[Rfam]
RNA sequence: CUUACCGGAGGCGCAAUGGAUCCCGAUCCCACUUCCCAUCACCGAUGGAGCAACAUCUCUCUCCGGUAAGCCGCCCGUUCGCUGCCUUACCGGAGACGCGUGAGGCAGUGACGUCUU
Numbered sequence: 001c002u003u004a005c006c007g008g009a010g011g012c013g014c015a016a017u018g019g020a021u022c023c024c025g026a027u028c029c030c031a032c033u034u035c036c037c038a039u040c041a042c043c044g045a046u047g048g049a050g051c052a053a054c055a056u057c058u059c060u061c062u063c064c065g066g067u068a069a070g071c072c073g074c075c076c077g078u079u080c081g082c083u084g085c086c087u088u089a090c091c092g093g094a095g096a097c098g099c100g101u102g103a104g105g106c107a108g109u110g111a112c113g114u115c116u117u
Stems, first nucleotide, its partner, number of pairs: 001070011017031003037050001039048002081109010

Magnesium riboswitch aptamer (Magnesium responsive RNA element): a 117-nucleotide RNA sequence from Pluralibacter gergoviae. Rfam's curators write: The Magnesium sensor RNA element is a cis-regulatory element that regulates the expression of the magnesium transporter protein MgtA. It is located in the 5' UTR of this gene. The element adopts different structures depending on the presence or absence of Mg2+, this has the affect of regulating whether transcription reads through the mgtA coding region or stops within the 5' UTR. The literature on the family includes a 2006 paper in Cold Spring Harb Symp Quant Biol by Groisman et al., "A Mg2+-responding RNA that controls the expression of a Mg2+ transporter". Gene Ontology term of the family: regulation of gene expression.